[Rfam]
RNA sequence: GGCCGGUCUGAGUGCAGUGGUGUUUACAGUUAAUUGAUCACAACCAGUUACAAAUUUAUUUGUUCCUUUUUCACUCCCAUCACUUCACUCGGCUAGCCAAAA
Numbered sequence: 001g002g003c004c005g006g007u008c009u010g011a012g013u014g015c016a017g018u019g020g021u022g023u024u025u026a027c028a029g030u031u032a033a034u035u036g037a038u039c040a041c042a043a044c045c046a047g048u049u050a051c052a053a054a055u056u057u058a059u060u061u062g063u064u065c066c067u068u069u070u071u072c073a074c075u076c077c078c079a080u081c082a083c084u085u086c087a088c089u090c091g092g093c094u095a096g097c098c099a100a101a102a
Stems, first nucleotide, its partner, number of pairs: 001098003005094004010090002014086001017080004022076001028064003032060002
RNA: Y RNA
Organism: Chlorocebus sabaeus